The record is a 54-nucleotide RNA sequence from Megalops atlanticus, which matches "UnaL2 LINE 3' element" in Rfam.

RNA sequence: AAUUGUAACCAAUGUAAGUCGCUCUGGAUAAGAGCAUCUGCAAAAUGACACUGA
Numbered sequence: 001a002a003u004u005g006u007a008a009c010c011a012a013u014g015u016a017a018g019u020c021g022c023u024c025u026g027g028a029u030a031a032g033a034g035c036a037u038c039u040g041c042a043a044a045a046u047g048a049c050a051c052u053g054a
Base pairs, nucleotide, nucleotide: 013043014041015040016039021035022034023033024032025031

From the family's description: The eel long interspersed element (LINE) UnaL2 and its partner short interspersed element (SINE) share a conserved 3' tail containing a stem-loop that is critical for their retrotransposition.